[Rfam]
RNA sequence: CGCCGGAGGCGGCGUAAAACACCGACUGCCCACGGGAUGCGACCCCGUAAAUAAGCGUA
Number, nucleotide and partner (000 for none) at each position: 001c014002g013003c012004c011005g000006g000007a000008g023009g022010c000011g004012g003013c002014g001015u000016a000017a000018a000019a000020c000021a000022c009023c008024g000025a000026c000027u000028g000029c000030c000031c000032a000033c047034g046035g045036g044037a000038u000039g000040c000041g000042a000043c000044c036045c035046c034047g033048u000049a000050a000051a000052u000053a000054a000055g000056c000057g000058u000059a000